[Rfam]
RNA sequence: ACAACAUUUAGACCGUCGGUCUACCGAGCAAUUACACCCGCUCGGUUGAAGUUAUUUCCAUUGUCGU
Number, nucleotide and partner (000 for none) at each position: 001a000002c000003a000004a064005c063006a062007u000008u000009u000010a000011g057012a056013c000014c000015g053016u000017c051018g000019g000020u049021c048022u000023a046024c045025c044026g043027a042028g041029c040030a000031a000032u000033u000034a000035c000036a000037c000038c000039c000040g029041c028042u027043c026044g025045g024046u023047u000048g021049a020050a000051g017052u000053u015054a000055u000056u012057u011058c000059c000060a000061u000062u006063g005064u004065c000066g000067u000
Background: mir-2774 microRNA precursor family: a 67-nucleotide RNA from Bombyx mori. The literature on the family includes a 2010 paper in BMC Genomics by Liu et al., "MicroRNAs of Bombyx mori identified by Solexa sequencing". It scores 67 bits against the family's covariance model.